This 98-nucleotide RNA from Actinidia chinensis belongs to the Rfam family "Plastid-rps12 3UTR RNA". On this family, see Richter et al., Plant Commun 2023: "Retrograde signaling in plants: A critical review focusing on the GUN pathway and beyond". It is annotated as a cis-regulatory element. About the family: Plastid rpl20 is a non-coding RNA (ncRNA) recognised in plastids. The match comes from Rfam's covariance-model search (86 bits).
[Rfam]
RNA sequence: GAUUUCCAUUGGUGCAAAUCCAAUCGCCAUAAUUUAAGAUGAGAAACAGUUCCCCAUUGGUAUCAAAUGAUUAUACGUUAAGUGGGGAAAAAACCUAU
Numbered sequence: 001g002a003u004u005u006c007c008a009u010u011g012g013u014g015c016a017a018a019u020c021c022a023a024u025c026g027c028c029a030u031a032a033u034u035u036a037a038g039a040u041g042a043g044a045a046a047c048a049g050u051u052c053c054c055c056a057u058u059g060g061u062a063u064c065a066a067a068u069g070a071u072u073a074u075a076c077g078u079u080a081a082g083u084g085g086g087g088a089a090a091a092a093a094c095c096u097a098u
Base pairs, nucleotide, nucleotide: 009023010022011021012020052087053086054085055084056078057077060074061073062072